RNA: mir-191 microRNA precursor family
Organism: Paramuricea clavata
RNA sequence: AGCGGAAAAGUCGAAUACGAGCGCGAAAGGCUGCUGGAUUUAUUAGCGAUUCCCAGCAGCCUUUCGCGCUCGUAUUCGACUUUUCCGCUU
Number, nucleotide and partner (000 for none) at each position: 001a000002g000003c000004g000005g000006a000007a000008a000009a081010g080011u079012c078013g077014a000015a000016u000017a073018c072019g071020a070021g069022c068023g067024c066025g065026a064027a063028a000029g000030g060031c059032u058033g057034c056035u055036g054037g000038a000039u000040u000041u000042a000043u000044u000045a000046g000047c000048g000049a000050u000051u000052c000053c000054c036055a035056g034057c033058a032059g031060c030061c000062u000063u027064u026065c025066g024067c023068g022069c021070u020071c019072g018073u017074a000075u000076u000077c013078g012079a011080c010081u009082u000083u000084u000085c000086c000087g000088c000089u000090u000